[Rfam]
RNA sequence: UUGGGUUCUUGGCUUGUUUUAAGUUGCCUGUGGACAAUUAGCAGAACUCAGGCAGCUAAAGCAAGUCUGGAAAUCAU
Numbered sequence: 001u002u003g004g005g006u007u008c009u010u011g012g013c014u015u016g017u018u019u020u021a022a023g024u025u026g027c028c029u030g031u032g033g034a035c036a037a038u039u040a041g042c043a044g045a046a047c048u049c050a051g052g053c054a055g056c057u058a059a060a061g062c063a064a065g066u067c068u069g070g071a072a073a074u075c076a077u
Base pairs, nucleotide, nucleotide: 003075004074006072007071008070011067012066013065014064015063016062017061018060019059020058022057023056024055025054026053027052028051029050030049032047
Source information: The record is a 77-nucleotide sequence from Microcaecilia unicolor, which matches "mir-1788 microRNA precursor family" in Rfam. NCBI's taxonomy places the organism under Eukaryota, Metazoa, Bilateria, Amphibia, Microcaecilia.